Shown here is an 89-nucleotide sequence from Rhizorhabdus dicambivorans, a member of the family "Glycine riboswitch aptamer".
It scores 57 bits against the family's covariance model.
Rfam's curators write: This family represents the bacterial glycine riboswitch.
RNA sequence: GCGUCAGCGCAGGGAGAGACCGGCUUCGGGCCGGCGCCGAAGGAGCAACCGCCCCGGAAACUCUCAGGCAGCAGGACCGGCGCCGGCCA
Numbered sequence: 001g002c003g004u005c006a007g008c009g010c011a012g013g014g015a016g017a018g019a020c021c022g023g024c025u026u027c028g029g030g031c032c033g034g035c036g037c038c039g040a041a042g043g044a045g046c047a048a049c050c051g052c053c054c055c056g057g058a059a060a061c062u063c064u065c066a067g068g069c070a071g072c073a074g075g076a077c078c079g080g081c082g083c084c085g086g087c088c089a
Stems, first nucleotide, its partner, number of pairs: 007083004012078002020034004036069003039065002043063003049057002
Dot-bracket structure: ......((((.((......((((.......)))).(((((..(((...((.....))...))))).))).......)).))))......